RNA: mir-26 microRNA precursor family
RNA sequence: CCUGGGCCUGUUUCAAGUAAUCCAGGAUAGGCUUGUUUAAGCUGGGAAAGCCUAUUCAGGAUAACUUGGUUCAGGAGCAUG
Numbered sequence: 001c002c003u004g005g006g007c008c009u010g011u012u013u014c015a016a017g018u019a020a021u022c023c024a025g026g027a028u029a030g031g032c033u034u035g036u037u038u039a040a041g042c043u044g045g046g047a048a049a050g051c052c053u054a055u056u057c058a059g060g061a062u063a064a065c066u067u068g069g070u071u072c073a074g075g076a077g078c079a080u081g
Stems, first nucleotide, its partner, number of pairs: 003079002007075004014068005020062003025057009